[Rfam]
RNA sequence: GUAUUGGUGACAAUGCUUCUGGAGGAAGCCGCCGGAUAAAAUAUCCGGUACCACGAAGGUGCGGGGUGACGAACAGGAAUCGGGUAUAAGGCGCAUGCGCUGGGACGAGUCUGCACAACAAGAUAAAGUCCUCUAUCCAUCAUAGGGCGUAUCCGUAAACCCGGCAUUCACGCACUGAAAGACAUGUGU
Numbered sequence: 001g002u003a004u005u006g007g008u009g010a011c012a013a014u015g016c017u018u019c020u021g022g023a024g025g026a027a028g029c030c031g032c033c034g035g036a037u038a039a040a041a042u043a044u045c046c047g048g049u050a051c052c053a054c055g056a057a058g059g060u061g062c063g064g065g066g067u068g069a070c071g072a073a074c075a076g077g078a079a080u081c082g083g084g085u086a087u088a089a090g091g092c093g094c095a096u097g098c099g100c101u102g103g104g105a106c107g108a109g110u111c112u113g114c115a116c117a118a119c120a121a122g123a124u125a126a127a128g129u130c131c132u133c134u135a136u137c138c139a140u141c142a143u144a145g146g147g148c149g150u151a152u153c154c155g156u157a158a159a160c161c162c163g164g165c166a167u168u169c170a171c172g173c174a175c176u177g178a179a180a181g182a183c184a185u186g187u188g189u
Stems, first nucleotide, its partner, number of pairs: 001016006045188001048185001054181001058176006064169005080164006091156003095152007103131004109124004